[Rfam]
RNA sequence: CCUGGAUACCUGAGGCCAUAGCAGAAGUGCUCAUAGUGCAGCCCUGUCAGAUUCCAACAAAUCUGUGAAUUGUGCU
Numbered sequence: 001c002c003u004g005g006a007u008a009c010c011u012g013a014g015g016c017c018a019u020a021g022c023a024g025a026a027g028u029g030c031u032c033a034u035a036g037u038g039c040a041g042c043c044c045u046g047u048c049a050g051a052u053u054c055c056a057a058c059a060a061a062u063c064u065g066u067g068a069a070u071u072g073u074g075c076u
Stems, first nucleotide, its partner, number of pairs: 012044001014043003020076004025071002027039003048065006
Dot-bracket structure: ...........[.[[[...((((.(((((.......))).]]]]...((((((......))))))....)).))))

The family of this 76-nucleotide RNA from Alligator mississippiensis is "Mammalian CPEB3 ribozyme". The base pairs follow the family's consensus structure, which is taken from published work.